RNA: MIR162_1 microRNA precursor family
Organism: Centaurea solstitialis
RNA sequence: GUGGAGUUCAUUGGAGUCAGCGGUUUAUCGAUCAGUUCCUUUUAACAAACGUAUGAACAAGAGAGAGCGAGCGUAAAAAAGGAAUCGAUCGAUAAACCUCUGCAUCCAGUGUCCGCCCC
Numbered sequence: 001g002u003g004g005a006g007u008u009c010a011u012u013g014g015a016g017u018c019a020g021c022g023g024u025u026u027a028u029c030g031a032u033c034a035g036u037u038c039c040u041u042u043u044a045a046c047a048a049a050c051g052u053a054u055g056a057a058c059a060a061g062a063g064a065g066a067g068c069g070a071g072c073g074u075a076a077a078a079a080a081g082g083a084a085u086c087g088a089u090c091g092a093u094a095a096a097c098c099u100c101u102g103c104a105u106c107c108a109g110u111g112u113c114c115g116c117c118c119c
Stems, first nucleotide, its partner, number of pairs: 013107003018102003022098004027093007036084007